[Rfam]
RNA sequence: AUAAUUCGGGUCACGCACUCCUCCUCCCAGCGUGUGCCCGUGGAGACUGGCGGUACUCCUCCUCCCAAUCGCCAGUCGCUCAUAUGACGCCCACCGGAUCUCCUCCCCCGGUGGGCGUUAUUU
Numbered sequence: 001a002u003a004a005u006u007c008g009g010g011u012c013a014c015g016c017a018c019u020c021c022u023c024c025u026c027c028c029a030g031c032g033u034g035u036g037c038c039c040g041u042g043g044a045g046a047c048u049g050g051c052g053g054u055a056c057u058c059c060u061c062c063u064c065c066c067a068a069u070c071g072c073c074a075g076u077c078g079c080u081c082a083u084a085u086g087a088c089g090c091c092c093a094c095c096g097g098a099u100c101u102c103c104u105c106c107c108c109c110g111g112u113g114g115g116c117g118u119u120a121u122u123u
Stems, first nucleotide, its partner, number of pairs: 007040003012034005045077010087118011